[Rfam]
RNA sequence: GGAUGAAGUGAUGAUUUAUUGUUUCCUAUUGGUUUGAUUGCCUGGAUGAUGGCUUGUUUGUAUUAGCUCUAUCUGAUCAUUC
Numbered sequence: 001g002g003a004u005g006a007a008g009u010g011a012u013g014a015u016u017u018a019u020u021g022u023u024u025c026c027u028a029u030u031g032g033u034u035u036g037a038u039u040g041c042c043u044g045g046a047u048g049a050u051g052g053c054u055u056g057u058u059u060g061u062a063u064u065a066g067c068u069c070u071a072u073c074u075g076a077u078c079a080u081u082c
Stems, first nucleotide, its partner, number of pairs: 002081004036054001040053003